Background
The record is a 141-nucleotide RNA sequence from Musa acuminata, which matches "Small nucleolar RNA snoR136" in Rfam. The base pairs follow the family's consensus structure, which was predicted with mfold. The literature on the family includes a 2009 paper in Nucleic Acids Res by Chen and Wu, "Mining small RNA sequencing data: a new approach to identify small nucleolar RNAs in Arabidopsis". Rfam 15.1 lists 452 matches to the family in 212 species. Lineage of the source: Eukaryota > Viridiplantae > Streptophytina > Euphyllophyta > Musa acuminata.

RNA sequence: UGGGCUUCAUCACUUUAAUCAAGACCUUUAUAUUGCUUGUCUAUUUAGAGGUCUGUUGUGUUUGAAGCGAGAAAAAAUGGCUGCCUCGCUAUCCGCUGCAAACUCUUCUGUUUUGCAUUUGGACGUUGGUGAGCUACAUUA
Number, nucleotide and partner (000 for none) at each position: 001u072002g000003g000004g068005c067006u000007u000008c064009a063010u000011c000012a061013c060014u000015u000016u058017a054018a000019u000020c000021a000022a000023g053024a052025c051026c050027u049028u048029u047030a000031u000032a046033u000034u000035g000036c000037u000038u000039g000040u000041c000042u000043a000044u000045u000046u032047a029048g028049a027050g026051g025052u024053c023054u017055g000056u000057u000058g016059u000060g013061u012062u000063u009064g008065a000066a000067g005068c004069g000070a000071g000072a001073a000074a000075a000076a000077a000078u000079g000080g134081c133082u132083g130084c129085c128086u000087c125088g124089c000090u000091a000092u123093c122094c121095g120096c000097u000098g000099c000100a000101a113102a112103c000104u000105c000106u000107u000108c000109u000110g000111u000112u102113u101114u000115g000116c000117a000118u000119u000120u095121g094122g093123a092124c088125g087126u000127u000128g085129g084130u083131g000132a082133g081134c080135u000136a000137c000138a000139u000140u000141a000